Annotation
The record is an 82-nucleotide RNA sequence from Gambusia affinis, which matches "Small nucleolar RNA SNORD79" in Rfam. The family is grouped with related families in Rfam's "SNORD74 clan". snoRNA U79 or Z22 is found in intron 7 of the gas5 gene in humans and is also present in mice. The source organism's lineage runs through Eukaryota, Gnathostomata, Teleostei, Euacanthomorphacea and Gambusia. It scores 68 bits against the family's covariance model. Rfam 15.1 lists 784 matches to the family in 651 species. Rfam links the family to the GO terms RNA processing and nucleolus.
RNA sequence: GACUGUCUGUGAUGAAUUUUGUUAUGAAACAUUGGGAAUCUCUCUGAAAAAGAGUGAAAGAGGAUUUUAUUCUGACACAGCU
Numbered sequence: 001g002a003c004u005g006u007c008u009g010u011g012a013u014g015a016a017u018u019u020u021g022u023u024a025u026g027a028a029a030c031a032u033u034g035g036g037a038a039u040c041u042c043u044c045u046g047a048a049a050a051a052g053a054g055u056g057a058a059a060g061a062g063g064a065u066u067u068u069a070u071u072c073u074g075a076c077a078c079a080g081c082u
Base pairs, nucleotide, nucleotide: 001082003080004079005078006077